[Rfam]
RNA sequence: CGCCAAGUCCGAGGCUCCGGAGAUCACCGGAGCCUGGUGCAAGAGGGA
Number, nucleotide and partner (000 for none) at each position: 001c000002g000003c000004c000005a000006a000007g000008u000009c000010c000011g000012a000013g034014g033015c032016u031017c030018c029019g028020g027021a000022g000023a000024u000025c000026a000027c020028c019029g018030g017031a016032g015033c014034c013035u000036g000037g000038u000039g000040c000041a000042a000043g000044a000045g000046g000047g000048a000
RNA: raiA-hairpin RNA